[Rfam]
RNA sequence: AGGCUUAUGAUGACAUAUAAUUAUCUUUGCGAUUUCAAUGAGCCAUGAUAAUCAAUGAUUUGAUUGUUACACACACUUAGGCUC
Numbered sequence: 001a002g003g004c005u006u007a008u009g010a011u012g013a014c015a016u017a018u019a020a021u022u023a024u025c026u027u028u029g030c031g032a033u034u035u036c037a038a039u040g041a042g043c044c045a046u047g048a049u050a051a052u053c054a055a056u057g058a059u060u061u062g063a064u065u066g067u068u069a070c071a072c073a074c075a076c077u078u079a080g081g082c083u084c
Stems, first nucleotide, its partner, number of pairs: 002083004

A member of the RNA family "Small nucleolar RNA R11/Z151" from Malus domestica, 84 nucleotides long. It is annotated as a C/D-box small nucleolar RNA. A search with the family's covariance model found it, with a score of 56 bits. A reference for the family is Barneche et al. (2001), "Identification of 66 box C/D snoRNAs in Arabidopsis thaliana: extensive gene duplications generated multiple isoforms predicting new ribosomal RNA 2'-O-methylation sites", J Mol Biol. Pairs were carried over by alignment from the consensus structure, which was predicted with PFOLD.